[Rfam]
RNA: Z30 small nucleolar RNA
Organism: Megalops atlanticus
RNA sequence: GACGAUGAUGAGAGGAAUGUAAUUCCCUGACUUGGUAUUGCCAUCCAGUGCUGGCAAUGACCAAGGUGUGAUUGGAUUUAAUCUUCUCUCUGAGUCG
Numbered sequence: 001g002a003c004g005a006u007g008a009u010g011a012g013a014g015g016a017a018u019g020u021a022a023u024u025c026c027c028u029g030a031c032u033u034g035g036u037a038u039u040g041c042c043a044u045c046c047a048g049u050g051c052u053g054g055c056a057a058u059g060a061c062c063a064a065g066g067u068g069u070g071a072u073u074g075g076a077u078u079u080a081a082u083c084u085u086c087u088c089u090c091u092g093a094g095u096c097g
Stems, first nucleotide, its partner, number of pairs: 002095002040055004